Shown here is a 67-nucleotide sequence from Cricetulus griseus, a member of the family "mir-290 microRNA precursor family". The source organism's lineage runs through Eukaryota, Opisthokonta, Sarcopterygii, Muroidea and Cricetulus. The family has 31 seed sequences and 565 matches in Rfam 15.1. The family's consensus secondary structure was predicted with RNAalifold. Its family is annotated with miRNA-mediated post-transcriptional gene silencing and RISC complex in the Gene Ontology. The match comes from Rfam's covariance-model search (53 bits).
RNA sequence: GUGAUACUCAACCUGGGGGCUCUUUUGUUUUCUUGGAAGAAAAGUGCUGCCAGACUUUGAGUGUUAC
Numbered sequence: 001g002u003g004a005u006a007c008u009c010a011a012c013c014u015g016g017g018g019g020c021u022c023u024u025u026u027g028u029u030u031u032c033u034u035g036g037a038a039g040a041a042a043a044g045u046g047c048u049g050c051c052a053g054a055c056u057u058u059g060a061g062u063g064u065u066a067c
Stems, first nucleotide, its partner, number of pairs: 004064008013053004018048003022044002025041002
Dot-bracket structure: ...((((((((.((((.(((.((.((.............)).)).))).))))...))))))))...